[Rfam]
Shown here is a 117-nucleotide RNA from Trichonephila clavata, a member of the family "U5 spliceosomal RNA".
For this family Rfam cites "The uRNA database" (Zwieb, Nucleic Acids Res, 1997).
U5 RNA is a component of both types of known spliceosome. The precise function of this molecule is unknown, though it is known that the 5' loop is required for splice site selection and p220 binding, and that both the 3' stem-loop and the Sm site are important for Sm protein binding and cap methylation.
The source organism's lineage runs through Eukaryota, Eumetazoa, Bilateria, Araneoidea and Trichonephila.
By type it is a spliceosomal small nuclear RNA.
Pairs were carried over by alignment from the consensus structure, which is taken from published work.
RNA sequence: AUGCUCUGGUUUCUCUUCAACGAAGUGCUAAUCUUUCGCCUUUUACUAAAGAUUACCGUGGAGAGGAACAAUUUAAUGAGCCUCACUUAAUUUUUGGACCCCACUUUCUGUGGGGUG
Number, nucleotide and partner (000 for none) at each position: 001a000002u000003g081004c080005u079006c078007u000008g000009g069010u068011u067012u066013c065014u064015c063016u062017u061018c060019a059020a000021c000022g000023a000024a000025g000026u000027g000028c000029u055030a054031a053032u052033c051034u050035u049036u048037c000038g000039c000040c000041u000042u000043u000044u000045a000046c000047u000048a036049a035050a034051g033052a032053u031054u030055a029056c000057c000058g000059u019060g018061g017062a016063g015064a014065g013066g012067a011068a010069c009070a000071a000072u000073u000074u000075a000076a000077u000078g006079a005080g004081c003082c000083u000084c000085a000086c000087u000088u000089a000090a000091u000092u000093u000094u000095u000096g000097g000098a116099c115100c114101c113102c112103a111104c000105u000106u000107u000108c000109u000110g000111u103112g102113g101114g100115g099116u098117g000